RNA sequence: ACCCUCUAGUUUCCUUUCCCAUCAGAUCUGAACACUGGUCUUGCUGGCCAUAAAGGAGGAAAAGGAAUCCUGAAGCUGGCCUCACAGCCUUAUGGUCUGAUAUGUUGCAUGUGGGCUAGUUUCAAACAAGG
Numbered sequence: 001a002c003c004c005u006c007u008a009g010u011u012u013c014c015u016u017u018c019c020c021a022u023c024a025g026a027u028c029u030g031a032a033c034a035c036u037g038g039u040c041u042u043g044c045u046g047g048c049c050a051u052a053a054a055g056g057a058g059g060a061a062a063a064g065g066a067a068u069c070c071u072g073a074a075g076c077u078g079g080c081c082u083c084a085c086a087g088c089c090u091u092a093u094g095g096u097c098u099g100a101u102a103u104g105u106u107g108c109a110u111g112u113g114g115g116c117u118a119g120u121u122u123c124a125a126a127c128a129a130g131g
Stems, first nucleotide, its partner, number of pairs: 003059005019047003023043001025040004076119007091109001093107001

Shown here is a 131-nucleotide sequence from Octodon degus, a member of the family "Small nucleolar RNA SNORA61".
The match comes from Rfam's covariance-model search (125 bits).
Its family is annotated with RNA processing and nucleolus in the Gene Ontology.
ACA61 is a member of the H/ACA class of snoRNA that guide the sites of modification of uridines to pseudouridines.
Rfam 15.1 lists 881 matches to the family in 421 species.
The family's RNA type in Rfam is H/ACA-box small nucleolar RNA.
The base pairs follow the family's consensus structure, which was predicted with PFOLD.